[Rfam]
RNA sequence: GAGUGACAUGAUGCUUUACCAUCUUUCGGGACUGACCUUAACUGGAGAUAUCUUUUCUAACUGAUCACUC
Dot-bracket structure: ((((((..........................................................))))))
A member of the RNA family "Small nucleolar RNA SNORD2" from Anguilla anguilla, 70 nucleotides long.
For this family Rfam cites "Identification of a novel box C/D snoRNA from mouse nucleolar cDNA library" (Zhou et al., Gene, 2004).
The family has 17 seed sequences and 1,116 matches in Rfam 15.1.
The source organism's lineage runs through Eukaryota, Vertebrata, Teleostomi, Actinopterygii and Anguilla.
The family's RNA type in Rfam is C/D-box small nucleolar RNA.
A search with the family's covariance model found it, with a score of 72 bits.